RNA sequence: UAAUGAAUGUAGCAUGGUACUGUACACGAAAAGUGAACUUAUGGAUCGACAUGUCUGCCAUCUCUGAAUCAUCUUGUGAUGAGACGGCCUGGUUUAGAUCCACAUUC
Number, nucleotide and partner (000 for none) at each position: 001u000002a000003a000004u000005g000006a000007a000008u000009g000010u000011a000012g025013c000014a023015u022016g000017g000018u000019a000020c000021u000022g015023u014024a000025c012026a000027c000028g000029a000030a000031a000032a000033g000034u000035g000036a000037a000038c000039u000040u000041a000042u000043g090044g089045a000046u087047c086048g000049a000050c000051a000052u000053g080054u079055c078056u000057g000058c000059c076060a000061u000062c000063u000064c000065u000066g000067a000068a000069u000070c000071a000072u000073c000074u000075u000076g059077u000078g055079a054080u053081g000082a000083g000084a000085c000086g047087g046088c000089c044090u043091g000092g000093u000094u000095u000096a000097g000098a000099u000100c000101c000102a000103c000104a000105u000106u000107c000
The family of this 107-nucleotide RNA from Brassica cretica is "Small nucleolar RNA snoR100".
The family has 9 seed sequences and 1,851 matches in Rfam 15.1.
The family's RNA type in Rfam is H/ACA-box small nucleolar RNA.
Gene Ontology terms of the family: RNA processing and nucleolus.